Shown here is a 102-nucleotide RNA sequence from Caryophanon tenue, a member of the family "Purine riboswitch aptamer". Pairs were carried over by alignment from the consensus structure, which is taken from published work. Lineage of the source: Bacteria > Bacillati > Bacillota > Caryophanaceae > Caryophanon.
RNA sequence: GUAGUAAAUUAAAUAUGUCGUCGUAUAAAGUCAGGGAUAUGGCCUGAAAGUUUCUACCGAGCUACCGUAAAAAGCUCGACUACGAUUUGAAAUAGCAUGAUC
Numbered sequence: 001g002u003a004g005u006a007a008a009u010u011a012a013a014u015a016u017g018u019c020g021u022c023g024u025a026u027a028a029a030g031u032c033a034g035g036g037a038u039a040u041g042g043c044c045u046g047a048a049a050g051u052u053u054c055u056a057c058c059g060a061g062c063u064a065c066c067g068u069a070a071a072a073a074g075c076u077c078g079a080c081u082a083c084g085a086u087u088u089g090a091a092a093u094a095g096c097a098u099g100a101u102c
Stems, first nucleotide, its partner, number of pairs: 020086006031047005058078006